The family of this 109-nucleotide sequence from Sorghum bicolor is "MIR5565 microRNA precursor family". Rfam 15.1 lists 3,346 matches to the family in 5 species. The family's consensus secondary structure was predicted with RNAalifold.
[Rfam]
RNA sequence: AUUAUCGGAUUCGCAUCAAUCCACAUGUGUUGAUGUAGAUUAGAGUGGAACUUGAACUAAAUUCCACCUCAAUCCACUCCAACACAUAUAGAUUGAGAUAAAUCAUAUA
Numbered sequence: 001a002u003u004a005u006c007g008g009a010u011u012c013g014c015a016u017c018a019a020u021c022c023a024c025a026u027g028u029g030u031u032g033a034u035g036u037a038g039a040u041u042a043g044a045g046u047g048g049a050a051c052u053u054g055a056a057c058u059a060a061a062u063u064c065c066a067c068c069u070c071a072a073u074c075c076a077c078u079c080c081a082a083c084a085c086a087u088a089u090a091g092a093u094u095g096a097g098a099u100a101a102a103u104c105a106u107a108u109a
Base pairs, nucleotide, nucleotide: 004108005107008104009103010102011101013099016096017095018094019093020092021091023089025087026086027085028084029083030082031081032080035077036076038074039073040072041071043069045067046066047065